[Rfam]
RNA sequence: GCGGAUGGCUGGAUGGCUGCGGCAUGUAAAUGUCGAGGAAAGUCCGGACUCCACAAAGCACGGUGCCGGGUAAUGCCCGGCGGGGGUAACCCUAGGGACAGCGCCACAGAGAUGUAAACUACCUGUGUCCGCACAGGAAAAGGUGAAACGGUGGGGUAAGAGCCCACCGCGGACGUGGCAACACGGACGGCACGGCAAGCCCCACCGGGAGCAAUGCCAAAUAGGGACCGCGUGUCGCCCGCAAGGGGGACGGGGAUGCUUGACCCCCAGCAGGUCCGGGUUGGCAGCUAGAGCGGCGUUGGUAACAGCGUCGUCAGAUGAAUGGUCAUCCAUCUGGGGCAACCCAGAGGACAAAAUCCGGCUUAUAGGCCGUCCGCGCAU
Numbered sequence: 001g002c003g004g005a006u007g008g009c010u011g012g013a014u015g016g017c018u019g020c021g022g023c024a025u026g027u028a029a030a031u032g033u034c035g036a037g038g039a040a041a042g043u044c045c046g047g048a049c050u051c052c053a054c055a056a057a058g059c060a061c062g063g064u065g066c067c068g069g070g071u072a073a074u075g076c077c078c079g080g081c082g083g084g085g086g087u088a089a090c091c092c093u094a095g096g097g098a099c100a101g102c103g104c105c106a107c108a109g110a111g112a113u114g115u116a117a118a119c120u121a122c123c124u125g126u127g128u129c130c131g132c133a134c135a136g137g138a139a140a141a142g143g144u145g146a147a148a149c150g151g152u153g154g155g156g157u158a159a160g161a162g163c164c165c166a167c168c169g170c171g172g173a174c175g176u177g178g179c180a181a182c183a184c185g186g187a188c189g190g191c192a193c194g195g196c197a198a199g200c201c202c203c204a205c206c207g208g209g210a211g212c213a214a215u216g217c218c219a220a221a222u223a224g225g226g227a228c229c230g231c232g233u234g235u236c237g238c239c240c241g242c243a244a245g246g247g248g249g250a251c252g253g254g255g256a257u258g259c260u261u262g263a264c265c266c267c268c269a270g271c272a273g274g275u276c277c278g279g280g281u282u283g284g285c286a287g288c289u290a291g292a293g294c295g296g297c298g299u300u301g302g303u304a305a306c307a308g309c310g311u312c313g314u315c316a317g318a319u320g321a322a323u324g325g326u327c328a329u330c331c332a333u334c335u336g337g338g339g340c341a342a343c344c345c346a347g348a349g350g351a352c353a354a355a356a357u358c359c360g361g362c363u364u365a366u367a368g369g370c371c372g373u374c375c376g377c378g379c380a381u
Stems, first nucleotide, its partner, number of pairs: 001377010011366001012330007020035006040364003044361005049211004056261004061207005066080005081095001082093004096202002101200002103196003119142002122137006150168006169191001170189002174185004215286004225277005294313008
A member of the RNA family "Bacterial RNase P class A" from Yoonia ponticola, 381 nucleotides long. NCBI's taxonomy places the organism under Bacteria, Pseudomonadati, Pseudomonadota, Rhodobacterales, Yoonia. By type it is a ribozyme. A search with the family's covariance model found it, with a score of 284 bits. The family's consensus secondary structure is taken from published work.